[Rfam]
RNA sequence: CAAGCGGUUACCGAAAAGCUUAAAUAGAGUAGGUG
Numbered sequence: 001c002a003a004g005c006g007g008u009u010a011c012c013g014a015a016a017a018g019c020u021u022a023a024a025u026a027g028a029g030u031a032g033g034u035g
Stems, first nucleotide, its partner, number of pairs: 002021004010034003